[Rfam]
RNA sequence: AUCGACAAAGCCAAACCCGCCGCGAGGAGGGGACGGAAAGCCACGGGUCUCCAGCAGACAGCCGGGCCGCCGAAC
Numbered sequence: 001a002u003c004g005a006c007a008a009a010g011c012c013a014a015a016c017c018c019g020c021c022g023c024g025a026g027g028a029g030g031g032g033a034c035g036g037a038a039a040g041c042c043a044c045g046g047g048u049c050u051c052c053a054g055c056a057g058a059c060a061g062c063c064g065g066g067c068c069g070c071c072g073a074a075c
Base pairs, nucleotide, nucleotide: 003072004071011036012035016031017030018029020027021026034061040067041066042065044064045063046062047059048058049057
This 75-nucleotide sequence from Paucidesulfovibrio gracilis belongs to the Rfam family "c-di-GMP-I-GGC riboswitch aptamer". Pairs were carried over by alignment from the consensus structure, which is taken from published work.